Record summary
A member of the RNA family "Small nucleolar RNA SNORD82" from Ameiurus melas, 64 nucleotides long. Its family is annotated with RNA processing and nucleolus in the Gene Ontology. The family has 27 seed sequences and 649 matches in Rfam 15.1. Rfam classes the family as a C/D-box small nucleolar RNA. snoRNA U82 or Z25 is found in both humans and mice.
RNA sequence: UGCACAGAUGAUGUCUCAAGGGAUUUAAUGCUGACUCUUGAUGAUUUUUAUUGAGCUGAUGUGC
Numbered sequence: 001u002g003c004a005c006a007g008a009u010g011a012u013g014u015c016u017c018a019a020g021g022g023a024u025u026u027a028a029u030g031c032u033g034a035c036u037c038u039u040g041a042u043g044a045u046u047u048u049u050a051u052u053g054a055g056c057u058g059a060u061g062u063g064c
Base pairs, nucleotide, nucleotide: 002064003063004062005061006060